[Rfam]
RNA sequence: GUUCGCAUCUUACCGGGCAGCAUUAGAGUCGUAUCGUUAUUUUCUAAUACUGUCAGGUAAAGAUGUCGUC
Numbered sequence: 001g002u003u004c005g006c007a008u009c010u011u012a013c014c015g016g017g018c019a020g021c022a023u024u025a026g027a028g029u030c031g032u033a034u035c036g037u038u039a040u041u042u043u044c045u046a047a048u049a050c051u052g053u054c055a056g057g058u059a060a061a062g063a064u065g066u067c068g069u070c
Stems, first nucleotide, its partner, number of pairs: 003068001005066005010060005016054005022048006

mir-8/mir-141/mir-200 microRNA precursor family: a 70-nucleotide sequence from Galleria mellonella. The organism belongs to Galleria, within Eukaryota. Its Rfam clan is "mir-8 microRNA precursor clan". Gene Ontology terms of the family: RISC complex and miRNA-mediated post-transcriptional gene silencing. For this family Rfam cites "Identification of novel genes coding for small expressed RNAs" (Lagos-Quintana et al., Science, 2001).